[Rfam]
A member of the RNA family "Trypanosomatid snoRNA TB8Cs2H1" from Trypanosoma cruzi, 65 nucleotides long.
The literature on the family includes a 2005 paper in RNA by Liang et al., "A genome-wide analysis of C/D and H/ACA-like small nucleolar RNAs in Trypanosoma brucei reveals a trypanosome-specific pattern of rRNA modification".
Rfam links the family to the GO terms RNA processing and nucleolus.
Pairs were carried over by alignment from the consensus structure, which was predicted with WAR.
The organism belongs to Schizotrypanum, within Eukaryota.
Rfam's curators put it in the seed alignment.
RNA sequence: ACCUGCACUUCGCUCGUCUCGCUCCCUUCCUCGUGAGCGUGUGGACGAUGGAUGGUGAAGGGAGA
Dot-bracket structure: .(((.(((.....(((((((((((..........)))))...))))))......))).)))....